Record summary:
A member of the RNA family "mir-574 microRNA precursor family" from Pipistrellus kuhlii, 81 nucleotides long. The family has 6 seed sequences and 4,084 matches in Rfam 15.1. For this family Rfam cites "Patterns of known and novel small RNAs in human cervical cancer" (Lui et al., Cancer Res, 2007). Its Rfam clan is "mir-574 microRNA precursor clan".
RNA sequence: AGGUCCAAAGAGAGAGGCAGGGUUUGAUCUGCAGCCUCUGUGGCAGCUGUUGAUCAACCAUUGCCUCUCUCAUUGUCUCUG
Numbered sequence: 001a002g003g004u005c006c007a008a009a010g011a012g013a014g015a016g017g018c019a020g021g022g023u024u025u026g027a028u029c030u031g032c033a034g035c036c037u038c039u040g041u042g043g044c045a046g047c048u049g050u051u052g053a054u055c056a057a058c059c060a061u062u063g064c065c066u067c068u069c070u071c072a073u074u075g076u077c078u079c080u081g
Base pairs, nucleotide, nucleotide: 008073010071011070012069013068014067015066016065017064018063019062020061022059024057025056026055027054028053029052032049033048034047035046